[Rfam]
RNA: mir-22 microRNA precursor family
Organism: Cynoglossus semilaevis
RNA sequence: CGUUGCUUCACAGUCGUUCUUCACUGGCUAGCUUUAUGUCACCACACCACGCACUAAAGCUGCCAGUUGAAGAGCUGUUGUGUGUAAC
Numbered sequence: 001c002g003u004u005g006c007u008u009c010a011c012a013g014u015c016g017u018u019c020u021u022c023a024c025u026g027g028c029u030a031g032c033u034u035u036a037u038g039u040c041a042c043c044a045c046a047c048c049a050c051g052c053a054c055u056a057a058a059g060c061u062g063c064c065a066g067u068u069g070a071a072g073a074g075c076u077g078u079u080g081u082g083u084g085u086a087a088c
Stems, first nucleotide, its partner, number of pairs: 005085002010081003017074006026064003030061007